The family of this 161-nucleotide sequence from Prolemur simus is "Hovlinc ribozyme (hominin vlincRNA-located)".
A reference for the family is Chen et al. (2021), "Hovlinc is a recently evolved class of ribozyme found in human lncRNA", Nat Chem Biol.
From the family's description: Hovlinc is a recently evolved class of self-cleaving ribozyme found in a very long non coding RNA (vlincRNA) in hominins, including humans (genus Homo), and chimpanzees and bonobos (genus Pan), but missing in gorillas (genus Gorilla).
NCBI's taxonomy places the organism under Eukaryota, Metazoa, Eumetazoa, Craniata, Prolemur.
The sequence is in the family's curated seed alignment.
[Rfam]
RNA sequence: ACCUAAACUAAGCCCAGGUGCCACAGAGGUGAUGGGCCAUGUGCUUACCCAAGAUAGGAUCUUCUUCUCUUGCACACUGUGCUGACAUGAUUCUCAUGACUCUUGCUUGGAGAGAUCUGGAUGAGGUGUCAGGGACCUCUGACUUUGUCAGCCUCUGCUAG
Dot-bracket structure: ..........(((...((.(...(((((.........[[....(((.....(((........)))((((((......]].......((((...))))...[[[[[.[..))))))........))).].]]]]]..)))))..).)......)...)))..
Numbered sequence: 001a002c003c004u005a006a007a008c009u010a011a012g013c014c015c016a017g018g019u020g021c022c023a024c025a026g027a028g029g030u031g032a033u034g035g036g037c038c039a040u041g042u043g044c045u046u047a048c049c050c051a052a053g054a055u056a057g058g059a060u061c062u063u064c065u066u067c068u069c070u071u072g073c074a075c076a077c078u079g080u081g082c083u084g085a086c087a088u089g090a091u092u093c094u095c096a097u098g099a100c101u102c103u104u105g106c107u108u109g110g111a112g113a114g115a116u117c118u119g120g121a122u123g124a125g126g127u128g129u130c131a132g133g134g135a136c137c138u139c140u141g142a143c144u145u146u147g148u149c150a151g152c153c154u155c156u157g158c159u160a161g
Stems, first nucleotide, its partner, number of pairs: 011159003017153001018146001020144001024141005038079002044126003052065003066115006087097004101134005107128001